[Rfam]
A member of the RNA family "GP20-b RNA", 72 nucleotides long.
Rfam classes the family as a cis-regulatory element.
The base pairs follow the family's consensus structure, which is taken from published work.
It is one of the family's seed sequences.

RNA sequence: UGCCAGCCCGAUCAGGCGUAAAACAGUCGGCUUAACCUGAAAUCAUGCGGUGAUACCGCGUAAAAAAUCGUA
Numbered sequence: 001u002g003c004c005a006g007c008c009c010g011a012u013c014a015g016g017c018g019u020a021a022a023a024c025a026g027u028c029g030g031c032u033u034a035a036c037c038u039g040a041a042a043u044c045a046u047g048c049g050g051u052g053a054u055a056c057c058g059c060g061u062a063a064a065a066a067a068u069c070g071u072a
Stems, first nucleotide, its partner, number of pairs: 001018004010028003046060004